The family of this 65-nucleotide RNA from Crypturellus soui is "Small nucleolar RNA SNORD93". Lineage of the source: Eukaryota > Bilateria > Palaeognathae > Tinamiformes > Crypturellus. Rfam classes the family as a C/D-box small nucleolar RNA. Rfam links the family to the GO terms nucleolus and RNA processing. A reference for the family is Galardi et al. (2002), "Purified box C/D snoRNPs are able to reproduce site-specific 2'-O-methylation of target RNA in vitro", Mol Cell Biol.

[Rfam]
Nucleotides: 065
Base pairs, nucleotide, nucleotide: 002064003063004062005061
Number, partner (000 for none) and nucleotide at each position: 001000u002064g003063g004062c005061c006000a007000g008000g009000g010000a011000u012000g013000a014000a015000a016000a017000u018000a019000a020000c021000a022000a023000c024000c025000u026000g027000a028000u029000u030000a031000c032000c033000u034000g035000a036000c037000c038000u039000g040000a041000u042000g043000g044000a045000u046000u047000a048000a049000a050000g051000g052000a053000u054000u055000u056000u057000c058000u059000g060000a061005g062004g063003c064002c065000a